[Rfam]
RNA sequence: CGGGAGAACCUUCGUCAAGGAACUAGGCAAAAAUGGUCCGUAACUUCGGGAGAAGGACCGCCUCGGUAGAGUGAAGGUACAGACGUGCCGGAGCUUGAGGAGGCCGCAGAGAAAAGGCCCUGCCGACUGUUUACCAAAAACACAGGUCCGUGCGAAGUUGAGAGACGACGUAUACGGGCUGACGCCUGCCCAGUGCCGGAAGGUUAAGGGGAGAGGUGAGAGCUUUGAACUGAAGCCCCGGUGAACGGCGGCCGUAACUAUAACGGUCCUAAGGUAGCGAAAUUCCUUGUCGGGUAAGUUCCGACCCGCACGAAAGGCGUAACGAGUGGGGCACUGUCUCGACGGAGGGCCCG
Dot-bracket structure: ((((....((((((((.(((..............(((((....(....).....)))))(((((...........(((((....)))))..........)))))(...).......(((((((((..(((.........)))..(((((((((...(((....)))...)..))))))))..((((.(((..(((((((..(((...((...(((((....)))))...))...))))))))..)))))((((((.......))))))(...).....(.........((((((.....))))))).........))))...)).)))))))....))).)))))))).))))
Rfam assigns this 353-nucleotide part of an RNA from uncultured Chloroflexi bacterium 1i19 to the family "Bacterial large subunit ribosomal RNA". For this family Rfam cites "Crystal structure of the ribosome at 5.5 A resolution" (Yusupov et al., Science, 2001).